[Rfam]
RNA sequence: UCCUUGUUGCACCACAAGGUGAAUAUAGCUGCCCAUCGACGUUUCCCUGAAAUCCGGUGGGCCACUGUUCACCUAUAGUGACGCAAGGC
Numbered sequence: 001u002c003c004u005u006g007u008u009g010c011a012c013c014a015c016a017a018g019g020u021g022a023a024u025a026u027a028g029c030u031g032c033c034c035a036u037c038g039a040c041g042u043u044u045c046c047c048u049g050a051a052a053u054c055c056g057g058u059g060g061g062c063c064a065c066u067g068u069u070c071a072c073c074u075a076u077a078g079u080g081a082c083g084c085a086a087g088g089c
Stems, first nucleotide, its partner, number of pairs: 002088006010080003014076001016074001018073007027066002031062008